[Rfam]
RNA sequence: AGGGGGUGCCUUUCAGGCAUCCUCUCCCAAAACUCCAAGGCCCGCCGGCAACGGUUGGGCCUUUUUUCUUGCCCACC
Numbered sequence: 001a002g003g004g005g006g007u008g009c010c011u012u013u014c015a016g017g018c019a020u021c022c023u024c025u026c027c028c029a030a031a032a033c034u035c036c037a038a039g040g041c042c043c044g045c046c047g048g049c050a051a052c053g054g055u056u057g058g059g060c061c062u063u064u065u066u067u068c069u070u071g072c073c074c075a076c077c
Base pairs, nucleotide, nucleotide: 008018009017010016011015038062039061040060041059042058043057044056046054